Rfam assigns this 108-nucleotide RNA from Phtheirospermum japonicum to the family "Small nucleolar RNA Z103".
For this family Rfam cites "The high diversity of snoRNAs in plants: identification and comparative study of 120 snoRNA genes from Oryza sativa" (Chen et al., Nucleic Acids Res, 2003).
It scores 76 bits against the family's covariance model.
Its family is annotated with RNA processing and nucleolus in the Gene Ontology.
RNA sequence: AUAGAGGUGAUGAUUAUUUCCCCAGAUGAUUCGACGUUGAAAUUACUGAGCGCUUUAUUGUUUUUUCUCCCUUUGUGGAGAAAAUCCAAGCCAGAUUAUCUGAUCCAU
Numbered sequence: 001a002u003a004g005a006g007g008u009g010a011u012g013a014u015u016a017u018u019u020c021c022c023c024a025g026a027u028g029a030u031u032c033g034a035c036g037u038u039g040a041a042a043u044u045a046c047u048g049a050g051c052g053c054u055u056u057a058u059u060g061u062u063u064u065u066u067c068u069c070c071c072u073u074u075g076u077g078g079a080g081a082a083a084a085u086c087c088a089a090g091c092c093a094g095a096u097u098a099u100c101u102g103a104u105c106c107a108u
Stems, first nucleotide, its partner, number of pairs: 001108002004105002